The record is an 89-nucleotide RNA, which matches "GA-cis RNA" in Rfam.
[Rfam]
RNA sequence: AUUAGGAGGAACCGCCAAGAACGAAGUUCUUGCUUGAAAUCGGUUCCGACGACUUGCCGCCGAACGCAUGUGAGGGGGCGCUACCUUUA
Numbered sequence: 001a002u003u004a005g006g007a008g009g010a011a012c013c014g015c016c017a018a019g020a021a022c023g024a025a026g027u028u029c030u031u032g033c034u035u036g037a038a039a040u041c042g043g044u045u046c047c048g049a050c051g052a053c054u055u056g057c058c059g060c061c062g063a064a065c066g067c068a069u070g071u072g073a074g075g076g077g078g079c080g081c082u083a084c085c086u087u088u089a
Stems, first nucleotide, its partner, number of pairs: 008047006016032006056079003060075002064071002